[Rfam]
RNA sequence: UCAGUUACAAUCUAGCAUCUGGGGCACACAUAACGAGUAUCUGAUUACUCCUAACAUACGCCUCGGGAAGGUCUGAGAUUUGGUCAAAGCUAUUGGUUGAGCUUCAUUUCCUAGCAGGAAACUUGUGCAAUCACAAGACGAAAGUACCAGAAAUUCUGCAAUUCCUUUUUUAAGAUGCAUUGCAUUGAAAUCUUUCGUGACCAGCAUUUUUAGUGCGAUGUGCUUGCUGCAAACCUCUGUUAGAGGUGCGCAGAACUCAAUUCAGACUAAUCUGUGACUGA
Numbered sequence: 001u002c003a004g005u006u007a008c009a010a011u012c013u014a015g016c017a018u019c020u021g022g023g024g025c026a027c028a029c030a031u032a033a034c035g036a037g038u039a040u041c042u043g044a045u046u047a048c049u050c051c052u053a054a055c056a057u058a059c060g061c062c063u064c065g066g067g068a069a070g071g072u073c074u075g076a077g078a079u080u081u082g083g084u085c086a087a088a089g090c091u092a093u094u095g096g097u098u099g100a101g102c103u104u105c106a107u108u109u110c111c112u113a114g115c116a117g118g119a120a121a122c123u124u125g126u127g128c129a130a131u132c133a134c135a136a137g138a139c140g141a142a143a144g145u146a147c148c149a150g151a152a153a154u155u156c157u158g159c160a161a162u163u164c165c166u167u168u169u170u171u172a173a174g175a176u177g178c179a180u181u182g183c184a185u186u187g188a189a190a191u192c193u194u195u196c197g198u199g200a201c202c203a204g205c206a207u208u209u210u211u212a213g214u215g216c217g218a219u220g221u222g223c224u225u226g227c228u229g230c231a232a233a234c235c236u237c238u239g240u241u242a243g244a245g246g247u248g249c250g251c252a253g254a255a256c257u258c259a260a261u262u263c264a265g266a267c268u269a270a271u272c273u274g275u276g277a278c279u280g281a
Base pairs, nucleotide, nucleotide: 001281002280003279004278007275008274009273012226014224015223016222017221018220021064022063023062024061025060035050036049037048038047039046073265074264075263076262077261082202083201084200085199107121108120109119110118111117122137123136124135125134126133127132138198139197140196141195142194143193144192158183159182160181227253228252229251230250233247234246235245236244237243
Overview:
Shown here is a 281-nucleotide sequence from Drosophila albomicans, a member of the family "Nuclear RNase P". It is annotated as a ribozyme. Rfam's curators write: Ribonuclease P (RNase P) is a ubiquitous endoribonuclease, found in archaea, bacteria and eukarya as well as chloroplasts and mitochondria. Its best characterised activity is the generation of mature 5'-ends of tRNAs by cleaving the 5'-leader elements of precursor-tRNAs. Cellular RNase Ps are ribonucleoproteins. The source organism's lineage runs through Eukaryota, Altocrustacea, Hexapoda, Insecta and Drosophila.